This 103-nucleotide RNA sequence from Spirodela intermedia belongs to the Rfam family "Small nucleolar RNA Z161/Z228".
The organism belongs to Spirodela, within Eukaryota.
The family has 11 seed sequences and 630 matches in Rfam 15.1.
It scores 52 bits against the family's covariance model.
Its family is annotated with RNA processing and nucleolus in the Gene Ontology.

[Rfam]
RNA sequence: GGGCCAGCUGAUGAGAACAUUCUAUACUCUCACGACGGUCGUCUAAGACACCCUCUCGCGUAGAUGUGGAGUAAUGCUGAUAUCCUCUUAUUUUCUGAUGGCC
Numbered sequence: 001g002g003g004c005c006a007g008c009u010g011a012u013g014a015g016a017a018c019a020u021u022c023u024a025u026a027c028u029c030u031c032a033c034g035a036c037g038g039u040c041g042u043c044u045a046a047g048a049c050a051c052c053c054u055c056u057c058g059c060g061u062a063g064a065u066g067u068g069g070a071g072u073a074a075u076g077c078u079g080a081u082a083u084c085c086u087c088u089u090a091u092u093u094u095c096u097g098a099u100g101g102c103c
Stems, first nucleotide, its partner, number of pairs: 001103002004100001049068003